Description: Rfam assigns this 181-nucleotide sequence from Triplophysa rosa to the family "Small nucleolar RNA SNORA23". Rfam's curators write: The members of this family belong to the H/ACA class of snoRNAs which are thought to guide the sites of modification of uridines to pseudouridines. This family includes human snoRNA ACA23 (SNORA23) and mouse snoMBI-1. ACA23 is predicted to guide the pseudouridylation of residue U3737 and U4331 of 28S rRNA.
[Rfam]
Nucleotides: 181
Stems, first nucleotide, its partner, number of pairs: 013091001015089001030082002033079001035077001036075003040071002043067003047063001050060003107174005120160004125155001127154004133144001134142002
Number, partner (000 for none) and nucleotide at each position: 001000g002000g003000u004000g005000g006000a007000u008000g009000g010000u011000g012000u013091g014000c015089g016000u017000a018000g019000u020000g021000u022000c023000c024000g025000u026000c027000u028000g029000c030082g031081u032000u033079u034000a035077g036075u037074g038073c039000c040071g041070u042000c043067c044066a045065c046000a047063g048000u049000c050060u051059g052058u053000g054000u055000c056000u057000u058052a059051c060050a061000g062000a063047u064000c065045g066044u067043g068000u069000g070041a071040c072000u073038g074037u075036a076000c077035u078000c079033a080000c081031a082030c083000c084000a085000c086000a087000c088000u089015c090000a091013c092000a093000g094000c095000c096000a097000c098000a099000g100000a101000a102000u103000g104000a105000c106000u107174g108173g109172a110171g111170a112000u113000c114000a115000u116000a117000g118000u119000a120160c121159u122158g123157g124000c125155u126000c127154a128153g129152u130151g131000a132000c133144g134142u135141c136000u137000a138000c139000a140000u141135g142134a143000c144133c145000c146000u147000c148000c149000a150000c151130c152129a153128c154127u155125g156000a157123c158122c159121a160120g161000c162000c163000u164000c165000c166000a167000u168000a169000g170111u171110c172109u173108c174107c175000u176000a177000c178000a179000a180000a181000c
The source organism's lineage runs through Eukaryota, Gnathostomata, Actinopteri, Cypriniphysae and Triplophysa. The literature on the family includes a 2001 paper in EMBO J by Huttenhofer et al., "RNomics: an experimental approach that identifies 201 candidates for novel, small, non-messenger RNAs in mouse".